This 70-nucleotide RNA belongs to the Rfam family "L13-Bacteroidia ribosomal protein leader". The sequence is in the family's curated seed alignment. By type it is a cis-regulatory leader.
[Rfam]
RNA sequence: GUGGGCCUUUGGGCCUGCGUCUGCGUGUUAAUAGUCUUUCCCGUUGGCCCGGGGAGAUGGUUAGUGAAUC
Numbered sequence: 001g002u003g004g005g006c007c008u009u010u011g012g013g014c015c016u017g018c019g020u021c022u023g024c025g026u027g028u029u030a031a032u033a034g035u036c037u038u039u040c041c042c043g044u045u046g047g048c049c050c051g052g053g054g055a056g057a058u059g060g061u062u063a064g065u066g067a068a069u070c
Stems, first nucleotide, its partner, number of pairs: 001018006028064005034058003038055006